Notes
Rfam assigns this 92-nucleotide RNA sequence from Cimex lectularius to the family "Vault RNA". Pairs were carried over by alignment from the consensus structure, which is taken from published work. About the family: This family of RNAs are found as part of the enigmatic vault ribonucleoprotein complex. The complex consists of a major vault protein (MVP), two minor vault proteins (VPARP and TEP1), and several small untranslated RNA molecules. It has been suggested that the vault complex is involved in drug resistance. Rfam classes the family as a non-coding RNA gene. NCBI's taxonomy places the organism under Eukaryota, Opisthokonta, Allotriocarida, Cimicoidea, Cimex.
[Rfam]
RNA sequence: GGGUCCGCGGUAGCCGAGUGGUUAAGGCGUCUCUUGGCUAGUAGAUCCCGCGAUCGUGGGUUCGUUCCCCACCGUCGCCUCUGGACUUUUUU
Number, nucleotide and partner (000 for none) at each position: 001g000002g087003g086004u085005c084006c083007g082008c000009g000010g000011u000012a000013g076014c000015c074016g073017a000018g072019u071020g070021g069022u000023u000024a000025a000026g066027g065028c064029g063030u000031c000032u000033c000034u000035u000036g000037g000038c000039u000040a000041g000042u000043a000044g000045a000046u000047c000048c000049c000050g000051c000052g000053a000054u000055c000056g000057u000058g000059g000060g000061u000062u000063c029064g028065u027066u026067c000068c000069c021070c020071a019072c018073c016074g015075u000076c013077g000078c000079c000080u000081c000082u007083g006084g005085a004086c003087u002088u000089u000090u000091u000092u000